[Rfam]
RNA sequence: AGCAGCGCUAGGGCGACGGCCUGAACGCCGGACCACUCCACCGGCCCGCGCUGCGUUCCCUUCUGGAGU
Number, nucleotide and partner (000 for none) at each position: 001a000002g054003c053004a052005g051006c050007g049008c048009u000010a000011g022012g021013g020014c019015g000016a000017c000018g000019g014020c013021c012022u011023g000024a000025a000026c000027g045028c044029c043030g042031g041032a000033c000034c000035a069036c068037u067038c066039c065040a064041c031042c030043g029044g028045c027046c000047c000048g008049c007050g006051c005052u004053g003054c002055g000056u000057u000058c000059c000060c000061u000062u000063c000064u040065g039066g038067a037068g036069u035